Shown here is a 99-nucleotide sequence from Rummeliibacillus sp. TYF005, a member of the family "SAM riboswitch aptamer (S box leader)". Rfam's curators write: The SAM riboswitch is found upstream of a number of genes which code for proteins involved in methionine or cysteine biosynthesis in Gram-positive bacteria. Lineage of the source: Bacteria > Bacillati > Bacillota > Caryophanaceae > Rummeliibacillus.
[Rfam]
Nucleotides: 099
Stems, first nucleotide, its partner, number of pairs: 001099008013042005021031003025076004043068004048064002051060003072091001078087003
Number, partner (000 for none) and nucleotide at each position: 001099u002098u003097c004096u005095u006094a007093u008092c009000a010000a011000g012000a013042g014041a015040a016039g017038c018000u019000g020000a021031g022030g023029g024000a025076c026075u027074g028073g029023c030022c031021c032000u033000a034000u035000g036000a037000a038017g039016c040015u041014u042013c043068a044067g045066c046065a047000a048064c049063c050000a051060g052059c053058c054000a055000a056000u057000u058053g059052g060051u061000c062000a063049g064048g065046u066045g067044c068043u069000a070000a071000u072091u073028c074027c075026a076025g077000u078087g079086g080085a081000g082000u083000a084000a085080u086079c087078c088000u089000g090000u091072a092008g093007a094006u095005a096004a097003g098002a099001a

The base pairs follow the family's consensus structure, which is taken from published work.